[Rfam]
glmS glucosamine-6-phosphate activated ribozyme aptamer: a 150-nucleotide sequence from Agrilactobacillus composti. The family's consensus secondary structure is taken from published work. The family's RNA type in Rfam is riboswitch. Its family is annotated with regulation of gene expression and catalytic activity in the Gene Ontology. Lineage of the source: Bacteria > Bacillota > Lactobacillaceae > Agrilactobacillus > Agrilactobacillus composti.

RNA sequence: GGUUAAAGGACAGCGCCUGGUCCAAUUUUAUUGGAUGACGAGGAAUGAGCUUAUCGAAAGAUUCGGCGGGUGGCUCAAGGGUUCGCACUCUAAAGACUAACUACAAAAACAGGCUGUAAAGCCUGAACAGAAUGUUGGUCAGCGAUUGGA
Numbered sequence: 001g002g003u004u005a006a007a008g009g010a011c012a013g014c015g016c017c018u019g020g021u022c023c024a025a026u027u028u029u030a031u032u033g034g035a036u037g038a039c040g041a042g043g044a045a046u047g048a049g050c051u052u053a054u055c056g057a058a059a060g061a062u063u064c065g066g067c068g069g070g071u072g073g074c075u076c077a078a079g080g081g082u083u084c085g086c087a088c089u090c091u092a093a094a095g096a097c098u099a100a101c102u103a104c105a106a107a108a109a110c111a112g113g114c115u116g117u118a119a120a121g122c123c124u125g126a127a128c129a130g131a132a133u134g135u136u137g138g139u140c141a142g143c144g145a146u147u148g149g150a
Base pairs, nucleotide, nucleotide: 020036021035022034023033024032025031026030046077047076048075049074050073054066055065056064057063078091079090080089081088082087095140096139097138098137099136100135101134110125111124112123113122114121115120